Overview
The record is a 75-nucleotide sequence from Streptomyces bingchenggensis, which matches "ASpks TB sRNA" in Rfam. It scores 72 bits against the family's covariance model. Rfam classes the family as an antisense RNA. The family's consensus secondary structure is taken from published work. For this family Rfam cites "Identification of small RNAs in Mycobacterium tuberculosis" (Arnvig and Young, Mol Microbiol, 2009).

RNA sequence: CUUGACCGAGCCGAGCAGCAGGGGCUGGUCGGGGGCGCGGUCCUGACCGUAGGUGGCCAGCAGCGCCUGGGCCUC
Dot-bracket structure: .............(((.......)))...........((...(((.(((....))).)))...))..........